[Rfam]
RNA sequence: GACGCUAAACGCUGAUGUGGAAUAAACGUCUAUGGACCCGGGGGCAGUGCCCGGCGGCUCCACCACAAGGGCAUAGAAGAUUUGAUCGAGAGCAGGUCUUAUCUAUUCUGUGUCCUUCUGUGGGGCCGAAACAGGAUCGACAUGCGUAGUAAAGAUAUUAAGCGGCGUUCGAGAUGGUACCUUCGUUACAGGACCACGCAUUAUAAAUGCAAACGAUAACACAAAUGUCGUAGCAGCUAAUGACAAUGGCGCAUUCGCCCUUGCCGCCUAA
Numbered sequence: 001g002a003c004g005c006u007a008a009a010c011g012c013u014g015a016u017g018u019g020g021a022a023u024a025a026a027c028g029u030c031u032a033u034g035g036a037c038c039c040g041g042g043g044g045c046a047g048u049g050c051c052c053g054g055c056g057g058c059u060c061c062a063c064c065a066c067a068a069g070g071g072c073a074u075a076g077a078a079g080a081u082u083u084g085a086u087c088g089a090g091a092g093c094a095g096g097u098c099u100u101a102u103c104u105a106u107u108c109u110g111u112g113u114c115c116u117u118c119u120g121u122g123g124g125g126c127c128g129a130a131a132c133a134g135g136a137u138c139g140a141c142a143u144g145c146g147u148a149g150u151a152a153a154g155a156u157a158u159u160a161a162g163c164g165g166c167g168u169u170c171g172a173g174a175u176g177g178u179a180c181c182u183u184c185g186u187u188a189c190a191g192g193a194c195c196a197c198g199c200a201u202u203a204u205a206a207a208u209g210c211a212a213a214c215g216a217u218a219a220c221a222c223a224a225a226u227g228u229c230g231u232a233g234c235a236g237c238u239a240a241u242g243a244c245a246a247u248g249g250c251g252c253a254u255u256c257g258c259c260c261u262u263g264c265c266g267c268c269u270a271a
Stems, first nucleotide, its partner, number of pairs: 001169005015158004027146003032143003038054005055128009170185004

Shown here is a 271-nucleotide RNA from an Alphaproteobacteria bacterium, a member of the family "permuted transfer-messenger RNA". NCBI's taxonomy places the organism under Bacteria, Pseudomonadati, Pseudomonadota, Alphaproteobacteria. It is annotated as a non-coding RNA gene. For this family Rfam cites "Variations on the tmRNA gene" (Mao et al., RNA Biol, 2010).